A member of the RNA family "Glutamine-II riboswitch aptamer" from Synechococcus sp. RS9916, 63 nucleotides long.
Rfam links the family to the GO term glutamine binding.
The organism belongs to Synechococcus, within Bacteria.
The literature on the family includes a 2019 paper in Nucleic Acids Res by Huang et al., "Structure and ligand binding of the glutamine-II riboswitch".
The family's consensus secondary structure is taken from published work.

[Rfam]
RNA sequence: CAACGUUCACCUCCCUUUGCCGGGAGGCGCAGUUCGAUUCAGGCCAUGGAACGGGGACCUGAA
Numbered sequence: 001c002a003a004c005g006u007u008c009a010c011c012u013c014c015c016u017u018u019g020c021c022g023g024g025a026g027g028c029g030c031a032g033u034u035c036g037a038u039u040c041a042g043g044c045c046a047u048g049g050a051a052c053g054g055g056g057a058c059c060u061g062a063a
Stems, first nucleotide, its partner, number of pairs: 004053005010027005038063006044056002